[Rfam]
RNA sequence: AUAAUGAUACACUCGCAUGGUGCGGUUCACCCAUCAGAAUGGGAAUGGUGAAAUUCCAGUGG
Numbered sequence: 001a002u003a004a005u006g007a008u009a010c011a012c013u014c015g016c017a018u019g020g021u022g023c024g025g026u027u028c029a030c031c032c033a034u035c036a037g038a039a040u041g042g043g044a045a046u047g048g049u050g051a052a053a054u055u056c057c058a059g060u061g062g
Stems, first nucleotide, its partner, number of pairs: 012059001013025004026045003030042002046058003
About this RNA:
The record is a 62-nucleotide sequence, which matches "pemK RNA" in Rfam. It is one of the family's seed sequences. It is annotated as a cis-regulatory element. The family's consensus secondary structure is taken from published work.